Description: This 52-nucleotide RNA from Jannaschia seohaensis belongs to the Rfam family "serC leader". NCBI's taxonomy places the organism under Bacteria, Pseudomonadati, Alphaproteobacteria, Roseobacteraceae, Jannaschia. It scores 67 bits against the family's covariance model. This family is a putative regulatory RNA structure that is found upstream of the serC-serA operon in some alpha-proteobacteria. The final stem of the structure overlaps the ribosome binding site of the serC reading frame. On this family, see Corbino et al., Genome Biol 2005: "Evidence for a second class of S-adenosylmethionine riboswitches and other regulatory RNA motifs in alpha-proteobacteria".
RNA sequence: CGGCGGGACACCCCUCCCCAACGAGGGGCGCGUAUCUGCAAGGGUAGACAUG
Numbered sequence: 001c002g003g004c005g006g007g008a009c010a011c012c013c014c015u016c017c018c019c020a021a022c023g024a025g026g027g028g029c030g031c032g033u034a035u036c037u038g039c040a041a042g043g044g045u046a047g048a049c050a051u052g
Stems, first nucleotide, its partner, number of pairs: 011028006033046005
Dot-bracket structure: ..........((((((......))))))....(((((....)))))......